The record is a 52-nucleotide RNA sequence from Solanum tuberosum, which matches "MIR1886 microRNA precursor family" in Rfam. NCBI's taxonomy places the organism under Eukaryota, Magnoliopsida, asterids, Solaneae, Solanum. It scores 64 bits against the family's covariance model. The base pairs follow the family's consensus structure, which was predicted with RNAalifold.
[Rfam]
Nucleotides: 052
Base pairs, nucleotide, nucleotide: 001050002049003048004047005046006045007044008043009042010041011040012039015036016035017034018029019028020027
Number, partner (000 for none) and nucleotide at each position: 001050u002049g003048a004047g005046a006045u007044g008043a009042a010041a011040u012039u013000a014000u015036c016035g017034u018029u019028u020027g021000g022000a023000c024000a025000u026000g027020c028019g029018a030000u031000u032000c033000c034017a035016c036015g037000u038000c039012g040011a041010u042009u043008u044007c045006a046005u047004c048003u049002c050001a051000a052000g